[Rfam]
RNA sequence: UGCCUUCGACAGGGGUUUCUUUCGGCCUUCAGCUGUUUUAUAGUCUGUAGGCCGGCGGAAACUACUUGCUGAAGGUG
Numbered sequence: 001u002g003c004c005u006u007c008g009a010c011a012g013g014g015g016u017u018u019c020u021u022u023c024g025g026c027c028u029u030c031a032g033c034u035g036u037u038u039u040a041u042a043g044u045c046u047g048u049a050g051g052c053c054g055g056c057g058g059a060a061a062c063u064a065c066u067u068g069c070u071g072a073a074g075g076u077g
Stems, first nucleotide, its partner, number of pairs: 005073004010068004014063007022055007030047003